The family of this 85-nucleotide sequence from a Clostridia bacterium is "c-di-GMP-I riboswitch aptamer".
Rfam links the family to the GO term cyclic-di-GMP binding.
It scores 78 bits against the family's covariance model.
The family's consensus secondary structure is taken from published work.
[Rfam]
RNA sequence: AAAUGAAAAAGGCAAAGCUAUCGAAAGAUAGUGACGCAAAACUAGAGGGUCUAAAUCCGCAAGGAUAAGACAGCCAGCUGCCAAA
Numbered sequence: 001a002a003a004u005g006a007a008a009a010a011g012g013c014a015a016a017g018c019u020a021u022c023g024a025a026a027g028a029u030a031g032u033g034a035c036g037c038a039a040a041a042c043u044a045g046a047g048g049g050u051c052u053a054a055a056u057c058c059g060c061a062a063g064g065a066u067a068a069g070a071c072a073g074c075c076a077g078c079u080g081c082c083a084a085a
Base pairs, nucleotide, nucleotide: 012037013036017032018031019030020029021028022027040079042077043076047075048074049071050070051069056065057064058063